[Rfam]
RNA: Early nodulin 40
RNA sequence: AUGGAAGUGCUUUGGCAAGAAGGCCCUCAUGGCUCUUAGAAAAAAGCAUCAAGUUCAUGGAGAGGGAUAUAUUCUGACGACCCUCCUCCUCCAAAAUUCAACAGUUUGUCUGUGCUUCACUCUUUUAGCUCUCUGUUAGCCACUGAAGCAGCAGCAGCAUUAAAAUCUACCAGAGGCUUUUGGCUAAUGCAUGGCAAACCGGCAAGUCACGAAACGGCAAUGGGCUCGGCUAUUGAAUCUU
Numbered sequence: 001a002u003g004g005a006a007g008u009g010c011u012u013u014g015g016c017a018a019g020a021a022g023g024c025c026c027u028c029a030u031g032g033c034u035c036u037u038a039g040a041a042a043a044a045a046g047c048a049u050c051a052a053g054u055u056c057a058u059g060g061a062g063a064g065g066g067a068u069a070u071a072u073u074c075u076g077a078c079g080a081c082c083c084u085c086c087u088c089c090u091c092c093a094a095a096a097u098u099c100a101a102c103a104g105u106u107u108g109u110c111u112g113u114g115c116u117u118c119a120c121u122c123u124u125u126u127a128g129c130u131c132u133c134u135g136u137u138a139g140c141c142a143c144u145g146a147a148g149c150a151g152c153a154g155c156a157g158c159a160u161u162a163a164a165a166u167c168u169a170c171c172a173g174a175g176g177c178u179u180u181u182g183g184c185u186a187a188u189g190c191a192u193g194g195c196a197a198a199c200c201g202g203c204a205a206g207u208c209a210c211g212a213a214a215c216g217g218c219a220a221u222g223g224g225c226u227c228g229g230c231u232a233u234u235g236a237a238u239c240u241u
Stems, first nucleotide, its partner, number of pairs: 059092003104199006123189001125187001223239002226236002